[Rfam]
RNA sequence: GAUGAGUAAGGCAAUGAAGUCUGCCUGAACCUCCUGGAAUUUCCAGGAUGAUGACUUCUAUUGUAUA
Numbered sequence: 001g002a003u004g005a006g007u008a009a010g011g012c013a014a015u016g017a018a019g020u021c022u023g024c025c026u027g028a029a030c031c032u033c034c035u036g037g038a039a040u041u042u043c044c045a046g047g048a049u050g051a052u053g054a055c056u057u058c059u060a061u062u063g064u065a066u067a
Stems, first nucleotide, its partner, number of pairs: 010025004016058006032048006
Annotation:
This 67-nucleotide RNA sequence from Candidatus Vecturithrix granuli belongs to the Rfam family "Fluoride riboswitch aptamer (crcB RNA motif)". It scores 45 bits against the family's covariance model. The organism belongs to Candidatus Vecturithrix, within Bacteria. For this family Rfam cites "Widespread genetic switches and toxicity resistance proteins for fluoride" (Baker et al., Science, 2012).